[Rfam]
RNA: nqrA-II ncRNA motif
Organism: Pseudohaemophilus sputorum
RNA sequence: AUUUUGUCUUUCUUAGAAGUUAGACGGAAUCUGAUUUGAGACCUUAAUGUAACUUUAGGAAUAAGUGGGGAAUUCCUUUGAUAUUCAUUUAAAGUUGCGACUCAAUAAAGCGAUUGCGAGAUUCGCAGUCAGUGAUUAACCCAAGCAAAAGUAGUGCAAAUAAUAUGA
Numbered sequence: 001a002u003u004u005u006g007u008c009u010u011u012c013u014u015a016g017a018a019g020u021u022a023g024a025c026g027g028a029a030u031c032u033g034a035u036u037u038g039a040g041a042c043c044u045u046a047a048u049g050u051a052a053c054u055u056u057a058g059g060a061a062u063a064a065g066u067g068g069g070g071a072a073u074u075c076c077u078u079u080g081a082u083a084u085u086c087a088u089u090u091a092a093a094g095u096u097g098c099g100a101c102u103c104a105a106u107a108a109a110g111c112g113a114u115u116g117c118g119a120g121a122u123u124c125g126c127a128g129u130c131a132g133u134g135a136u137u138a139a140c141c142c143a144a145g146c147a148a149a150a151g152u153a154g155u156g157c158a159a160a161u162a163a164u165a166u167g168a
Stems, first nucleotide, its partner, number of pairs: 002029008012019002036105005048099006056087001058085002061082002064079002067076003110157002112130008132152002136148002